[Rfam]
RNA sequence: UACAGAGUGGCAGUGAAACCGUUACCAUUACUGAGUUUAGUAAUGGUAAGGGUUAUACUGCUGCUUUCCCA
Number, nucleotide and partner (000 for none) at each position: 001u000002a000003c000004a000005g000006a000007g064008u063009g062010g000011c060012a059013g058014u000015g000016a000017a054018a053019c052020c051021g000022u049023u048024a047025c046026c045027a044028u043029u042030a041031c040032u039033g038034a000035g000036u000037u000038u033039a032040g031041u030042a029043a028044u027045g026046g025047u024048a023049a022050g000051g020052g019053u018054u017055a000056u000057a000058c013059u012060g011061c000062u009063g008064c007065u000066u000067u000068c000069c000070c000071a000

mir-451 microRNA precursor family: a 71-nucleotide sequence from Hymenochirus boettgeri. The literature on the family includes a 2008 paper in Biochem Pharmacol by Zhu et al., "Role of MicroRNA miR-27a and miR-451 in the regulation of MDR1/P-glycoprotein expression in human cancer cells". The base pairs follow the family's consensus structure, which was predicted with RNAalifold.